[Rfam]
RNA sequence: UGGACGCGACUGGCGGCACGGGGAUGGGUUGACCAUCGGGGAGCUCGUCGCGGGGGUCGACCGCCUGGGCCUCCGUG
Numbered sequence: 001u002g003g004a005c006g007c008g009a010c011u012g013g014c015g016g017c018a019c020g021g022g023g024a025u026g027g028g029u030u031g032a033c034c035a036u037c038g039g040g041g042a043g044c045u046c047g048u049c050g051c052g053g054g055g056g057u058c059g060a061c062c063g064c065c066u067g068g069g070c071c072u073c074c075g076u077g
Base pairs, nucleotide, nucleotide: 001047002046006044007043010040011039012065013064014063015062016061024036025035026034027033054072055071056070057069058068
RNA: ZMP/ZTP riboswitch aptamer (pfl RNA motif)